[Rfam]
RNA sequence: CAAUUAAGAUGUGGGGCCAUAGCAGAAGUGUUUAUGUUGUGGUCCCUGUCAGAUUCCAGUGAAUCUGAGAAUUCUGCU
Numbered sequence: 001c002a003a004u005u006a007a008g009a010u011g012u013g014g015g016g017c018c019a020u021a022g023c024a025g026a027a028g029u030g031u032u033u034a035u036g037u038u039g040u041g042g043u044c045c046c047u048g049u050c051a052g053a054u055u056c057c058a059g060u061g062a063a064u065c066u067g068a069g070a071a072u073u074c075u076g077c078u
Stems, first nucleotide, its partner, number of pairs: 013046006021078007028040003050067007

Rfam assigns this 78-nucleotide RNA sequence from Crocodylus porosus to the family "Mammalian CPEB3 ribozyme". Rfam describes the family as follows. The mammalian CPEB3 ribozyme is a self cleaving RNA located in the second intron of the CPEB3 gene which belongs to a family of genes regulating messenger RNA polyadenylation. This ribozyme is highly conserved and found only in mammals. The CPEB3 ribozyme is structurally and biochemically related to the human hepatitis delta virus (HDV) ribozyme and the HDV ribozyme is proposed to have arisen from the human transcriptome. There is currently only one other known self cleaving ribozyme in mammals, the CoTC motif. It scores 71 bits against the family's covariance model.